[Rfam]
RNA sequence: AGAAUGGAUAGAGGAGCGGACUUCAUCAGUAGCGCGCAGGAUUGAAACCGGAAUGAACUGUGCGGGAAAGGGGAGGCUGCCGAAGAGAUCGGACUUUUCCGGAGAGACGGUUUCUGGGCUGUUCGCAGAAGAUGCGGCAGACUGUCACAGAAGUGGAGCGCUAUCAGGAUA
Numbered sequence: 001a002g003a004a005u006g007g008a009u010a011g012a013g014g015a016g017c018g019g020a021c022u023u024c025a026u027c028a029g030u031a032g033c034g035c036g037c038a039g040g041a042u043u044g045a046a047a048c049c050g051g052a053a054u055g056a057a058c059u060g061u062g063c064g065g066g067a068a069a070g071g072g073g074a075g076g077c078u079g080c081c082g083a084a085g086a087g088a089u090c091g092g093a094c095u096u097u098u099c100c101g102g103a104g105a106g107a108c109g110g111u112u113u114c115u116g117g118g119c120u121g122u123u124c125g126c127a128g129a130a131g132a133u134g135c136g137g138c139a140g141a142c143u144g145u146c147a148c149a150g151a152a153g154u155g156g157a158g159c160g161c162u163a164u165c166a167g168g169a170u171a
Stems, first nucleotide, its partner, number of pairs: 007165005016080004021075004033064007084115008095104001116143002119140004124136004145156004
Lysine riboswitch aptamer: a 171-nucleotide RNA sequence from Lachnospiraceae bacterium 1_4_56FAA. Gene Ontology term of the family: lysine biosynthetic process.